[Rfam]
RNA sequence: GGAUGAUCCUCAGUGGUCUGGGGUGCAGGCUUCAAACCUGUAGCUGUCUGGCGACAGAGUGGUUCAAUUCCACCUUCC
Numbered sequence: 001g002g003a004u005g006a007u008c009c010u011c012a013g014u015g016g017u018c019u020g021g022g023g024u025g026c027a028g029g030c031u032u033c034a035a036a037c038c039u040g041u042a043g044c045u046g047u048c049u050g051g052c053g054a055c056a057g058a059g060u061g062g063u064u065c066a067a068u069u070c071c072a073c074c075u076u077c078c
Stems, first nucleotide, its partner, number of pairs: 001078003005074001008023006024042006044057005059073004
A member of the RNA family "Selenocysteine transfer RNA" from Heterocephalus glaber, 78 nucleotides long. The organism belongs to Heterocephalus, within Eukaryota.